[Rfam]
Shown here is a 62-nucleotide RNA from Roseateles toxinivorans, a member of the family "Betaproteobacteria toxic small RNA". A reference for the family is Kimelman et al. (2012), "A vast collection of microbial genes that are toxic to bacteria", Genome Res. The family has 51 seed sequences and 951 matches in Rfam 15.1. Taxonomically the source falls in Roseateles (Bacteria, Pseudomonadati, Betaproteobacteria, Sphaerotilaceae). The family's consensus secondary structure was predicted with WAR.

RNA sequence: UGUCUCCUCCACUGCCUCUAGAGUGGAUUCAAGCCUCAGGUCACAAGCCUGGGGCUUUUUUU
Numbered sequence: 001u002g003u004c005u006c007c008u009c010c011a012c013u014g015c016c017u018c019u020a021g022a023g024u025g026g027a028u029u030c031a032a033g034c035c036u037c038a039g040g041u042c043a044c045a046a047g048c049c050u051g052g053g054g055c056u057u058u059u060u061u062u
Base pairs, nucleotide, nucleotide: 008027009026010025011024012023013022033055034054035053036052037051038050039049040048
Dot-bracket structure: .......((((((........)))))).....((((((((.......)))))))).......